Purine riboswitch aptamer: a 98-nucleotide RNA from Clostridiaceae bacterium JG1575.
The match comes from Rfam's covariance-model search (54 bits).
Gene Ontology term of the family: purine nucleobase biosynthetic process.
RNA sequence: UAAAAUAACGUAAAACUGUCUCAUAUAAGCCUCCAAUAGGGGAGGCGUCUCUACCUGAAACCGGAACAUUUCAGUCUAUGAGUCAGGAGGACCUCCUA
Numbered sequence: 001u002a003a004a005a006u007a008a009c010g011u012a013a014a015a016c017u018g019u020c021u022c023a024u025a026u027a028a029g030c031c032u033c034c035a036a037u038a039g040g041g042g043a044g045g046c047g048u049c050u051c052u053a054c055c056u057g058a059a060a061c062c063g064g065a066a067c068a069u070u071u072c073a074g075u076c077u078a079u080g081a082g083u084c085a086g087g088a089g090g091a092c093c094u095c096c097u098a
Stems, first nucleotide, its partner, number of pairs: 018084001020082006029046005055074006